[Rfam]
RNA: Small nucleolar RNA SNORA9
RNA sequence: GUGCAAGCCGUUCAGCGAGGCUGAGCCUGUGUGGCACUGUCCUUUCCUUGAGUGCUUGCUAGAGUGACACUGGGGUGGUUUGAGGCCUUGGCAUGCCUGAUCCGUGACAAGGUUAUAGGUAAACCUCAGACAACU
Dot-bracket structure: ..((((((.........(((..(.(((.....))).)...)))..........))))))...........(((((..........(((((..(((.......)))..)))))...........))))).......